[Rfam]
RNA sequence: GGGUAUUUGAGGAGGGCUGUCCCUAGUACGAGAGGACCGGGAUGGGCAGACAGAUGGUGUUCCAAUUGUUUACCACAAGCAGCGUUGGGUAGCCAAGUCUGUAAGAGAUAACCGCUGAAAGCAUCUAAGUGGGAAACUCGCUCCAAGAUAAGAUACCCCGUAUCAGAGAGAUCUGAUACAUUAAGACCCCUUGAAGACUACGAGGUUGAUAGGUUGGGUGUGUAAGUACAGUAAUGUGUUUAGCUAACCAAUACUAAUAGGUCGAAAGUU
Number, nucleotide and partner (000 for none) at each position: 001g158002g157003g156004u155005a154006u153007u152008u151009g000010a000011g144012g143013a142014g141015g000016g000017c045018u044019g043020u042021c041022c040023c039024u000025a000026g000027u000028a000029c000030g000031a000032g000033a000034g000035g000036a000037c000038c000039g023040g022041g021042a020043u019044g018045g017046g102047c101048a100049g099050a098051c097052a000053g000054a000055u095056g094057g093058u000059g000060u000061u000062c088063c087064a086065a085066u084067u081068g080069u079070u078071u077072a000073c000074c000075a000076c000077a071078a070079g069080c068081a067082g000083c000084g066085u065086u064087g063088g062089g000090u000091a000092g000093c057094c056095a055096a000097g051098u050099c049100u048101g047102u046103a000104a000105g139106a138107g137108a000109u000110a000111a000112c132113c131114g130115c129116u128117g000118a000119a000120a000121g000122c000123a000124u000125c000126u000127a000128a116129g115130u114131g113132g112133g000134a000135a000136a000137c107138u106139c105140g000141c014142u013143c012144c011145a000146a000147g000148a000149u000150a000151a008152g007153a006154u005155a004156c003157c002158c001159c000160g000161u180162a000163u178164c000165a000166g000167a000168g000169a000170g000171a000172u000173c000174u000175g000176a000177u000178a163179c000180a161181u000182u265183a000184a000185g263186a262187c261188c260189c205190c204191u203192u202193g201194a000195a000196g000197a000198c000199u000200a000201c193202g192203a191204g190205g189206u000207u000208g000209a000210u256211a255212g254213g252214u251215u250216g249217g248218g000219u000220g244221u000222g000223u000224a000225a000226g239227u238228a237229c236230a235231g000232u000233a000234a000235u230236g229237u228238g227239u226240u000241u000242a000243g000244c220245u000246a000247a000248c217249c216250a215251a214252u213253a000254c212255u211256a210257a000258u000259a000260g188261g187262u186263c185264g000265a182266a000267a000268g000269u000270u000
Bacterial large subunit ribosomal RNA: a 270-nucleotide part of an RNA from Vermiphilus pyriformis. Pairs were carried over by alignment from the consensus structure, which is taken from published work.